[Rfam]
RNA: MIR6457 microRNA precursor family
Organism: Populus trichocarpa
RNA sequence: AAUAAGAGAAGAGGCUGCCAAACUAAAAGAGGAAACUAAUCUAAUCUCCCAGCAAAGUGCAGCAAACCAACUUCGGCUUGAUCUUAUAUUUAAGAUCUAGACGAUGUUGCUUGGCAGCAUUUUGCAGGGAGAUAGAUUAGUUUCCUCUUUUAGUUUUGCUCGACUCUUCUCUCAUU
Numbered sequence: 001a002a003u004a005a006g007a008g009a010a011g012a013g014g015c016u017g018c019c020a021a022a023c024u025a026a027a028a029g030a031g032g033a034a035a036c037u038a039a040u041c042u043a044a045u046c047u048c049c050c051a052g053c054a055a056a057g058u059g060c061a062g063c064a065a066a067c068c069a070a071c072u073u074c075g076g077c078u079u080g081a082u083c084u085u086a087u088a089u090u091u092a093a094g095a096u097c098u099a100g101a102c103g104a105u106g107u108u109g110c111u112u113g114g115c116a117g118c119a120u121u122u123u124g125c126a127g128g129g130a131g132a133u134a135g136a137u138u139a140g141u142u143u144c145c146u147c148u149u150u151u152a153g154u155u156u157u158g159c160u161c162g163a164c165u166c167u168u169c170u171c172u173c174a175u176u
Stems, first nucleotide, its partner, number of pairs: 001176003005172009015162001017159002020156024045132006052125005058119003062115002065112002068109004073104003077100002080097007